Rfam assigns this 145-nucleotide sequence from Bacillus subtilis to the family "Bacillus sRNA ncr952". The family's consensus secondary structure is taken from published work. For this family Rfam cites "Identification of regulatory RNAs in Bacillus subtilis" (Irnov et al., Nucleic Acids Res, 2010). The source organism's lineage runs through Bacteria, Bacillati, Caryophanales, Bacillus subtilis and Bacillus subtilis subsp. subtilis.
RNA sequence: GGGGGUGGAAACAUAUGGCAUGUGGUCCGAAGAUCAUUAUCUUUUUGGAUGAACUUGAUGAUCCAAAUGUGAGAAUCAUUUUAGAAUGCAGAAUUUAAAUUACAACAUUGUGUUUUGCUCCCUGUUCGUGUGAACAGGGAGAUUU
Numbered sequence: 001g002g003g004g005g006u007g008g009a010a011a012c013a014u015a016u017g018g019c020a021u022g023u024g025g026u027c028c029g030a031a032g033a034u035c036a037u038u039a040u041c042u043u044u045u046u047g048g049a050u051g052a053a054c055u056u057g058a059u060g061a062u063c064c065a066a067a068u069g070u071g072a073g074a075a076u077c078a079u080u081u082u083a084g085a086a087u088g089c090a091g092a093a094u095u096u097a098a099a100u101u102a103c104a105a106c107a108u109u110g111u112g113u114u115u116u117g118c119u120c121c122c123u124g125u126u127c128g129u130g131u132g133a134a135c136a137g138g139g140a141g142a143u144u145u
Stems, first nucleotide, its partner, number of pairs: 025050009054084002057080005062074002064071002096117004101112004118141010